[Rfam]
RNA sequence: AGGCCAGCCAAUUUAACUGCUUACCUGAAUGUGUUUCUGCAGAAAUUUUUAAAAGCUGGCAAUAGUAAAGCCUUAUUACAAACUUUAAGGACACUGAAGUCAUUAAAGACCCUGAAAAUGGCUAUAACA
Number, nucleotide and partner (000 for none) at each position: 001a000002g000003g060004c059005c058006a057007g056008c000009c000010a000011a000012u000013u000014u000015a000016a000017c042018u041019g040020c039021u000022u000023a000024c000025c000026u000027g000028a000029a000030u000031g000032u000033g000034u000035u000036u000037c000038u000039g020040c019041a018042g017043a000044a000045a000046u000047u000048u000049u000050u000051a000052a000053a000054a000055g000056c007057u006058g005059g004060c003061a000062a000063u000064a000065g000066u000067a000068a000069a000070g122071c121072c120073u000074u000075a000076u000077u000078a000079c000080a000081a000082a000083c108084u107085u106086u105087a104088a103089g000090g101091a100092c099093a000094c000095u000096g000097a000098a000099g092100u091101c090102a000103u088104u087105a086106a085107a084108g083109a000110c000111c000112c000113u000114g000115a000116a000117a000118a000119u000120g072121g071122c070123u000124a000125u000126a000127a000128c000129a000
Shown here is a 129-nucleotide RNA from Otolemur garnettii, a member of the family "Small nucleolar RNA SNORA33". It scores 127 bits against the family's covariance model. It is annotated as an H/ACA-box small nucleolar RNA. Rfam links the family to the GO terms nucleolus and RNA processing. From the family's description: ACA33 is a member of the H/ACA class of snoRNA that guide the sites of modification of uridines to pseudouridines.